[Rfam]
Shown here is a 123-nucleotide RNA sequence from Gossypium harknessii, a member of the family "MIR7504 microRNA precursor family". The base pairs follow the family's consensus structure, which was predicted with RNAalifold. The match comes from Rfam's covariance-model search (93 bits).

RNA sequence: AACAAGAGGAUGAUAAAUCAUAUUUUUCCUCCUGAUUUUUAGCAUUUUUAGUUAAAUUUAAAUUUUUUCAGGAAUAAAAAACAAAAAAUCAGGAGGAAAAAUCUGAUUUGUCAUUCUCCUAUU
Numbered sequence: 001a002a003c004a005a006g007a008g009g010a011u012g013a014u015a016a017a018u019c020a021u022a023u024u025u026u027u028c029c030u031c032c033u034g035a036u037u038u039u040u041a042g043c044a045u046u047u048u049u050a051g052u053u054a055a056a057u058u059u060a061a062a063u064u065u066u067u068u069c070a071g072g073a074a075u076a077a078a079a080a081a082c083a084a085a086a087a088a089u090c091a092g093g094a095g096g097a098a099a100a101a102u103c104u105g106a107u108u109u110g111u112c113a114u115u116c117u118c119c120u121a122u123u
Stems, first nucleotide, its partner, number of pairs: 001123002004120001006118015022102006029095011042082001045079004
Overview
NCBI's taxonomy places the organism under Eukaryota, Streptophyta, Streptophytina, Malvales, Gossypium.